[Rfam]
Small nucleolar RNA snoR145: a 148-nucleotide RNA sequence from Morella rubra.
RNA sequence: AAGCGAAGGUCCCAGCAGAGGGGUAGGAACUCUAUAAUUGAGGCCCCUCUAACAUCAAUACAAAUCCCUUCGCAGAUUGACCUGCCGAAUCGUAGGAUGCCCAGAAGCUUCAAUCUUCGGAGCAUCUUGAACCCUCGGCUAUAUUCAA
Numbered sequence: 001a002a003g004c005g006a007a008g009g010u011c012c013c014a015g016c017a018g019a020g021g022g023g024u025a026g027g028a029a030c031u032c033u034a035u036a037a038u039u040g041a042g043g044c045c046c047c048u049c050u051a052a053c054a055u056c057a058a059u060a061c062a063a064a065u066c067c068c069u070u071c072g073c074a075g076a077u078u079g080a081c082c083u084g085c086c087g088a089a090u091c092g093u094a095g096g097a098u099g100c101c102c103a104g105a106a107g108c109u110u111c112a113a114u115c116u117u118c119g120g121a122g123c124a125u126c127u128u129g130a131a132c133c134c135u136c137g138g139c140u141a142u143a144u145u146c147a148a
Stems, first nucleotide, its partner, number of pairs: 003073007011020001013018001026048002030042003034038001084139005096126002099123002102120001104118003
It is annotated as an H/ACA-box small nucleolar RNA. It scores 122 bits against the family's covariance model. Gene Ontology terms of the family: nucleolus and RNA processing. Taxonomically the source falls in Morella (Eukaryota, Streptophyta, Magnoliopsida, rosids).